RNA sequence: UAGGCUUGCUGUAGCUCCGCAGCGGCGCCUGGGAUAUGGUCCAAAGACGACGAUAUGCCGACACCGUAGCAAUUCGGAGCUCAA
Numbered sequence: 001u002a003g004g005c006u007u008g009c010u011g012u013a014g015c016u017c018c019g020c021a022g023c024g025g026c027g028c029c030u031g032g033g034a035u036a037u038g039g040u041c042c043a044a045a046g047a048c049g050a051c052g053a054u055a056u057g058c059c060g061a062c063a064c065c066g067u068a069g070c071a072a073u074u075c076g077g078a079g080c081u082c083a084a
Stems, first nucleotide, its partner, number of pairs: 013081007023066003030060003034056004
About this RNA:
ybhL leader: an 84-nucleotide RNA from Agrobacterium bohemicum. From the family's description: This family is a putative regulatory RNA structure that is found upstream of an uncharacterized membrane protein in alpha-proteobacteria. On this family, see Corbino et al., Genome Biol 2005: "Evidence for a second class of S-adenosylmethionine riboswitches and other regulatory RNA motifs in alpha-proteobacteria". A search with the family's covariance model found it, with a score of 62 bits. Rfam classes the family as a cis-regulatory leader. Its family is annotated with regulation of gene expression in the Gene Ontology.